[Rfam]
RNA sequence: AAAUUUAAUAUGGUUCAAGUCCUCAAAGUCUAAGGGCAUUGCCUAUGAUUUUUGGACCAAUGAGUUUGUAUAAGAAAUUUGCAGGCUUUCCGUGUUUGAGAAGAACCUUAAGCUUAAUUCGG
Number, nucleotide and partner (000 for none) at each position: 001a000002a000003a000004u000005u000006u000007a000008a000009u000010a000011u000012g107013g106014u105015u104016c103017a000018a000019g057020u056021c055022c054023u000024c000025a051026a050027a000028g049029u048030c047031u000032a000033a000034g044035g043036g042037c041038a000039u000040u000041g037042c036043c035044u034045a000046u000047g030048a029049u028050u026051u025052u000053u000054g022055g021056a020057c019058c000059a000060a000061u000062g088063a087064g086065u085066u084067u083068g082069u081070a000071u000072a079073a078074g000075a000076a000077a000078u073079u072080u000081g069082c068083a067084g066085g065086c064087u063088u062089u099090c098091c000092g000093u000094g000095u000096u000097u000098g090099a089100g000101a000102a000103g016104a015105a014106c013107c012108u000109u000110a000111a000112g000113c000114u000115u000116a000117a000118u000119u000120c000121g000122g000
The family of this 122-nucleotide sequence from Sedimentibacter hydroxybenzoicus is "Molybdenum/Tungsten riboswitch aptamer (Moco RNA motif)".